[Rfam]
RNA: L17-Actino-Proteobacteria ribosomal protein leader
RNA sequence: ACGGCCGUCCAUCCGGCGGCCGGCCCGACCCCGGUACCUGAUACGGCCGGGGCGG
Numbered sequence: 001a002c003g004g005c006c007g008u009c010c011a012u013c014c015g016g017c018g019g020c021c022g023g024c025c026c027g028a029c030c031c032c033g034g035u036a037c038c039u040g041a042u043a044c045g046g047c048c049g050g051g052g053c054g055g
Stems, first nucleotide, its partner, number of pairs: 002022008025055003029052007